The record is a 116-nucleotide RNA from Electrophorus electricus, which matches "U5 spliceosomal RNA" in Rfam. From the family's description: U5 RNA is a component of both types of known spliceosome. The precise function of this molecule is unknown, though it is known that the 5' loop is required for splice site selection and p220 binding, and that both the 3' stem-loop and the Sm site are important for Sm protein binding and cap methylation. Rfam classes the family as a spliceosomal small nuclear RNA. Taxonomically the source falls in Electrophorus (Eukaryota, Metazoa, Clupeocephala, Ostariophysi).

RNA sequence: AAACUCUUGCUUCUCUUCAACUCGUAUAAAUCUUUCGCCUUUUACUAAAGAUUUCCGUGGAGAGGAGCAUUAUGAGUAUAAACUAAUUUUUCGAUGCCCUGCUUUAUAGUGGGGCU
Numbered sequence: 001a002a003a004c005u006c007u008u009g010c011u012u013c014u015c016u017u018c019a020a021c022u023c024g025u026a027u028a029a030a031u032c033u034u035u036c037g038c039c040u041u042u043u044a045c046u047a048a049a050g051a052u053u054u055c056c057g058u059g060g061a062g063a064g065g066a067g068c069a070u071u072a073u074g075a076g077u078a079u080a081a082a083c084u085a086a087u088u089u090u091u092c093g094a095u096g097c098c099c100u101g102c103u104u105u106a107u108a109g110u111g112g113g114g115c116u
Stems, first nucleotide, its partner, number of pairs: 003077004009068011028054008094116001096115006